[Rfam]
Shown here is a 108-nucleotide sequence from Mucilaginibacter sp. MD40, a member of the family "SAM riboswitch aptamer (S box leader)". The base pairs follow the family's consensus structure, which is taken from published work.

RNA sequence: AACUUAUCCAGAAAGACCGAGGGAAUGGCCCUAAGACGUCUUAGCAACCUGUACAUCAAAUGUAAAAGGUGCUAAUUCCUGCUCCUGUUAUAUGGAGAAAGAUAAGCA
Numbered sequence: 001a002a003c004u005u006a007u008c009c010a011g012a013a014a015g016a017c018c019g020a021g022g023g024a025a026u027g028g029c030c031c032u033a034a035g036a037c038g039u040c041u042u043a044g045c046a047a048c049c050u051g052u053a054c055a056u057c058a059a060a061u062g063u064a065a066a067a068g069g070u071g072c073u074a075a076u077u078c079c080u081g082c083u084c085c086u087g088u089u090a091u092a093u094g095g096a097g098a099a100a101g102a103u104a105a106g107c108a
Stems, first nucleotide, its partner, number of pairs: 003106006013042005021031003027079002043073004048069002052064003077100001082097004